[Rfam]
RNA sequence: GAAUGGUAGUGAGGGCACAUAAAUUGAUUUGCGUCUCUAGGCCUGCCCUUGCUGAUGCCUUUCGGCUUUGAUUUGGGGGCAUGGUUCCACAUUA
Numbered sequence: 001g002a003a004u005g006g007u008a009g010u011g012a013g014g015g016c017a018c019a020u021a022a023a024u025u026g027a028u029u030u031g032c033g034u035c036u037c038u039a040g041g042c043c044u045g046c047c048c049u050u051g052c053u054g055a056u057g058c059c060u061u062u063c064g065g066c067u068u069u070g071a072u073u074u075g076g077g078g079g080c081a082u083g084g085u086u087c088c089a090c091a092u093u094a
Stems, first nucleotide, its partner, number of pairs: 001016001004011001031082001033080003041072001043070001045066003

Annotation
Small nucleolar RNA snoR100: a 94-nucleotide RNA sequence from Rhododendron simsii. The literature on the family includes a 2002 paper in Curr Biol by Marker et al., "Experimental RNomics: identification of 140 candidates for small non-messenger RNAs in the plant Arabidopsis thaliana". The source organism's lineage runs through Eukaryota, Streptophyta, Mesangiospermae, Gunneridae and Rhododendron. Rfam 15.1 lists 1,851 matches to the family in 220 species. The family's RNA type in Rfam is H/ACA-box small nucleolar RNA.